[Rfam]
RNA sequence: CGGCUGUAGCCAAAUCAAACAUCGGAGAGAAGUUUACUGGCCGGUUGUCGUGAUAUCUUUCCGAUUUCCGUCGACUUAUCUGCUUACCGAACUUCUUAUAUUC
Numbered sequence: 001c002g003g004c005u006g007u008a009g010c011c012a013a014a015u016c017a018a019a020c021a022u023c024g025g026a027g028a029g030a031a032g033u034u035u036a037c038u039g040g041c042c043g044g045u046u047g048u049c050g051u052g053a054u055a056u057c058u059u060u061c062c063g064a065u066u067u068c069c070g071u072c073g074a075c076u077u078a079u080c081u082g083c084u085u086a087c088c089g090a091a092c093u094u095c096u097u098a099u100a101u102u103c
Stems, first nucleotide, its partner, number of pairs: 027097008039084003043080003047075004
Rfam assigns this 103-nucleotide RNA sequence from Carpinus fangiana to the family "Small nucleolar RNA snoR109". The base pairs follow the family's consensus structure, which was predicted with WAR. A reference for the family is Marker et al. (2002), "Experimental RNomics: identification of 140 candidates for small non-messenger RNAs in the plant Arabidopsis thaliana", Curr Biol. The family's RNA type in Rfam is H/ACA-box small nucleolar RNA. A search with the family's covariance model found it, with a score of 81 bits.